This 86-nucleotide RNA from Danionella cerebrum belongs to the Rfam family "Small nucleolar RNA SNORD60". For this family Rfam cites "Purified box C/D snoRNPs are able to reproduce site-specific 2'-O-methylation of target RNA in vitro" (Galardi et al., Mol Cell Biol, 2002). It scores 46 bits against the family's covariance model. Taxonomically the source falls in Danionella (Eukaryota, Teleostomi, Euteleostomi, Otophysi).

RNA sequence: AGCCGCUGAUGACCAAUUCAUCUUUUUCUGACACCUCUUAUGAAUGCUUUUUUAGCAGAUGAUUCUACAUUUUUUUUCUGAGGCUC
Numbered sequence: 001a002g003c004c005g006c007u008g009a010u011g012a013c014c015a016a017u018u019c020a021u022c023u024u025u026u027u028c029u030g031a032c033a034c035c036u037c038u039u040a041u042g043a044a045u046g047c048u049u050u051u052u053u054a055g056c057a058g059a060u061g062a063u064u065c066u067a068c069a070u071u072u073u074u075u076u077u078c079u080g081a082g083g084c085u086c
Stems, first nucleotide, its partner, number of pairs: 001085004046056003